[Rfam]
About this RNA
The family of this 84-nucleotide RNA sequence from Arachis hypogaea is "small nucleolar RNA snoR117". The family's consensus secondary structure was predicted with RNAalifold. Rfam links the family to the GO terms RNA processing and nucleolus.
RNA sequence: GGCCUGUGAUGCAUAUCAAUUUGUCCGUACCAUCUGAGAUUUCUUUCUCUGAUCGAUACACCAAUCCUUUCAGAUCUGAGGCCA
Dot-bracket structure: ((((...........................................................................)))).